About this RNA: Rfam assigns this 101-nucleotide part of an RNA from Sulfolobales archaeon SCGC AB-777_K20 to the family "Archaeal large subunit ribosomal RNA". Lineage of the source: Archaea > Thermoproteati > Thermoproteota > Thermoprotei > Sulfolobales. The family's consensus secondary structure is taken from published work. A reference for the family is Yusupov et al. (2001), "Crystal structure of the ribosome at 5.5 A resolution", Science.

RNA sequence: CGCAGGGCUCGAAAGGGAUGAGUCCUCCCGAAGGAAAGGGGCGCGAGCCUCGAGUACGAGGGAGGAGGACCGGGGGUCCUGCGUUUCGUCUUGAAACACGG
Dot-bracket structure: ((((((((((....((......(((((((...(....(((((....))))).....)..)))))))...))..))))))))))..((((........))))
Numbered sequence: 001c002g003c004a005g006g007g008c009u010c011g012a013a014a015g016g017g018a019u020g021a022g023u024c025c026u027c028c029c030g031a032a033g034g035a036a037a038g039g040g041g042c043g044c045g046a047g048c049c050u051c052g053a054g055u056a057c058g059a060g061g062g063a064g065g066a067g068g069a070c071c072g073g074g075g076g077u078c079c080u081g082c083g084u085u086u087c088g089u090c091u092u093g094a095a096a097c098a099c100g101g
Stems, first nucleotide, its partner, number of pairs: 001083010015071002023066007033057001038051005086101004